[Rfam]
RNA sequence: GGCUCUGGCCGAGCGGUCGCUUUUUGCAUUUGCCUUUCGGGGAAGGUGCAGGGAGAGGAAAGUCCGGACACUAGGGGACAAUCGGACCAAGUAACUCUUGGGAAAAAAGAGGGAGACUUCUUUUUUACGGAAAGUGCAGCAGAAAAAAUACCGCCUUUUCGAAAGAACAGGUAAGGGUGAAAUGGUAGUGUAAGAGACUACCGCUUGCUUCGUGAGGAUCAAGGCAGGGUAAACCCUCCGAUGUGCAAUCUCAAGUAAACAACCGUUAUGAGCAUGUCCCGCCAGGUUGUGGGUAGAGAGCAUCAGAUAAAUGAUCGCAUAGAACAGAAUCCGGCUUACGGGCCAGAGCCAUUU
Numbered sequence: 001g002g003c004u005c006u007g008g009c010c011g012a013g014c015g016g017u018c019g020c021u022u023u024u025u026g027c028a029u030u031u032g033c034c035u036u037u038c039g040g041g042g043a044a045g046g047u048g049c050a051g052g053g054a055g056a057g058g059a060a061a062g063u064c065c066g067g068a069c070a071c072u073a074g075g076g077g078a079c080a081a082u083c084g085g086a087c088c089a090a091g092u093a094a095c096u097c098u099u100g101g102g103a104a105a106a107a108a109g110a111g112g113g114a115g116a117c118u119u120c121u122u123u124u125u126u127a128c129g130g131a132a133a134g135u136g137c138a139g140c141a142g143a144a145a146a147a148a149u150a151c152c153g154c155c156u157u158u159u160c161g162a163a164a165g166a167a168c169a170g171g172u173a174a175g176g177g178u179g180a181a182a183u184g185g186u187a188g189u190g191u192a193a194g195a196g197a198c199u200a201c202c203g204c205u206u207g208c209u210u211c212g213u214g215a216g217g218a219u220c221a222a223g224g225c226a227g228g229g230u231a232a233a234c235c236c237u238c239c240g241a242u243g244u245g246c247a248a249u250c251u252c253a254a255g256u257a258a259a260c261a262a263c264c265g266u267u268a269u270g271a272g273c274a275u276g277u278c279c280c281g282c283c284a285g286g287u288u289g290u291g292g293g294u295a296g297a298g299a300g301c302a303u304c305a306g307a308u309a310a311a312u313g314a315u316c317g318c319a320u321a322g323a324a325c326a327g328a329a330u331c332c333g334g335c336u337u338a339c340g341g342g343c344c345a346g347a348g349c350c351a352u353u354u
Stems, first nucleotide, its partner, number of pairs: 001350010011339001013318006020055012060337003064334005069245003077279001082241005087101005102128001103126010129236002134234002136230002151176002153172004158167003184202006203225001204223004209218003249299004259290006270283001272282002
Annotation:
This 354-nucleotide RNA sequence from Leptospira idonii belongs to the Rfam family "Bacterial RNase P class A". Rfam classes the family as a ribozyme. The source organism's lineage runs through Bacteria, Pseudomonadati, Spirochaetota, Leptospirales and Leptospira. Ribonuclease P (RNase P) is a ubiquitous endoribonuclease, found in archaea, bacteria and eukarya as well as chloroplasts and mitochondria.